[Rfam]
RNA sequence: CAGAUACAGUGAUGAUGGCAUAGUUCAGCAGAAUAUCCUGUGAAGAAGAGUUUUGUCUUUCGCUCCUAUCUGAUGUAUCUA
Numbered sequence: 001c002a003g004a005u006a007c008a009g010u011g012a013u014g015a016u017g018g019c020a021u022a023g024u025u026c027a028g029c030a031g032a033a034u035a036u037c038c039u040g041u042g043a044a045g046a047a048g049a050g051u052u053u054u055g056u057c058u059u060u061c062g063c064u065c066c067u068a069u070c071u072g073a074u075g076u077a078u079c080u081a
Stems, first nucleotide, its partner, number of pairs: 004078005

This 81-nucleotide RNA sequence from Thalassarche chlororhynchos belongs to the Rfam family "Small nucleolar RNA snR60/Z15/Z230/Z193/J17". Its Rfam clan is "SNORD77 clan". Its family is annotated with nucleolus and RNA processing in the Gene Ontology. A search with the family's covariance model found it, with a score of 63 bits. Taxonomically the source falls in Thalassarche (Eukaryota, Amniota, Dinosauria, Procellariiformes).